[Rfam]
RNA sequence: AGGAAAUAUCUCUCUUCCUUUAUCAACAGAGGUACUCGGCCAUGCUGUGGGUUUCAUUAUAAUAAACCUUAGACGUUUAUCGUCACUGGUAUGGAGUGAGGAUGGGUUAGAUGCCCA
Numbered sequence: 001a002g003g004a005a006a007u008a009u010c011u012c013u014c015u016u017c018c019u020u021u022a023u024c025a026a027c028a029g030a031g032g033u034a035c036u037c038g039g040c041c042a043u044g045c046u047g048u049g050g051g052u053u054u055c056a057u058u059a060u061a062a063u064a065a066a067c068c069u070u071a072g073a074c075g076u077u078u079a080u081c082g083u084c085a086c087u088g089g090u091a092u093g094g095a096g097u098g099a100g101g102a103u104g105g106g107u108u109a110g111a112u113g114c115c116c117a
Stems, first nucleotide, its partner, number of pairs: 001019004007034007035100004040094007049069006072084004103117005
A member of the RNA family "epsC RNA" from Salipaludibacillus agaradhaerens, 117 nucleotides long. The organism belongs to Salipaludibacillus, within Bacteria. Rfam classes the family as a cis-regulatory element. A search with the family's covariance model found it, with a score of 106 bits. The base pairs follow the family's consensus structure, which is taken from published work.